[Rfam]
RNA sequence: AUACCUUCUCGGCCUUUGGCUAAGAUCAAGUGUAGUAUCUGUUCUAAUCAGUGUGAAAACUGGUUUCCCUGCUUUUGGUGGGGUCUUUUUCACAUUUAUUUUUGGAACUGCUGCUUUCGGUUAGCUUGCUAGCCAAUCGCGGUACGGUCUCCGGGGGCUUUCACCUAUCCCUCGUGAGGCCAACUACUA
Numbered sequence: 001a002u003a004c005c006u007u008c009u010c011g012g013c014c015u016u017u018g019g020c021u022a023a024g025a026u027c028a029a030g031u032g033u034a035g036u037a038u039c040u041g042u043u044c045u046a047a048u049c050a051g052u053g054u055g056a057a058a059a060c061u062g063g064u065u066u067c068c069c070u071g072c073u074u075u076u077g078g079u080g081g082g083g084u085c086u087u088u089u090u091c092a093c094a095u096u097u098a099u100u101u102u103u104g105g106a107a108c109u110g111c112u113g114c115u116u117u118c119g120g121u122u123a124g125c126u127u128g129c130u131a132g133c134c135a136a137u138c139g140c141g142g143u144a145c146g147g148u149c150u151c152c153g154g155g156g157g158c159u160u161u162c163a164c165c166u167a168u169c170c171c172u173c174g175u176g177a178g179g180c181c182a183a184c185u186a187c188u189a
Stems, first nucleotide, its partner, number of pairs: 007025003011021004046065006067083007111142004115136002121132004146181005152174006
RNA: U2 spliceosomal RNA
Organism: Phytophthora sojae